[Rfam]
RNA sequence: UCUGCUAAAAUAAAAACGUUGCUCAAUAGUGAGUUAACCCUUGAGCCUUCAUCCCUUUGCUCAAGCAUAUUAUAGGCGAAUUUUGUCGCCAAAGGAGAACCUUUUG
Numbered sequence: 001u002c003u004g005c006u007a008a009a010a011u012a013a014a015a016a017c018g019u020u021g022c023u024c025a026a027u028a029g030u031g032a033g034u035u036a037a038c039c040c041u042u043g044a045g046c047c048u049u050c051a052u053c054c055c056u057u058u059g060c061u062c063a064a065g066c067a068u069a070u071u072a073u074a075g076g077c078g079a080a081u082u083u084u085g086u087c088g089c090c091a092a093a094g095g096a097g098a099a100c101c102u103u104u105u106g
Stems, first nucleotide, its partner, number of pairs: 018038004022033003040065007052097001054095004075090005
PreQ1-II (pre queuosine) riboswitch aptamer: a 106-nucleotide RNA sequence from Lactococcus cremoris.
About the family: preQ1-II riboswitch was first reported for Weinberg et al. 2007 it was recognised in Streptococcaceae and Lactococcus families in 5' untranslated regions of genes of a membrane protein classified as COG4708 or DUF988. Meyers et al. 2008 confirm that preQ1-II recognise the queuosine (Q) precursor pre-queuosine 1 (preQ1).
It is one of the family's seed sequences.
On this family, see Meyer et al., RNA 2008: "Confirmation of a second natural preQ1 aptamer class in Streptococcaceae bacteria".
Its family is annotated with queuosine biosynthetic process in the Gene Ontology.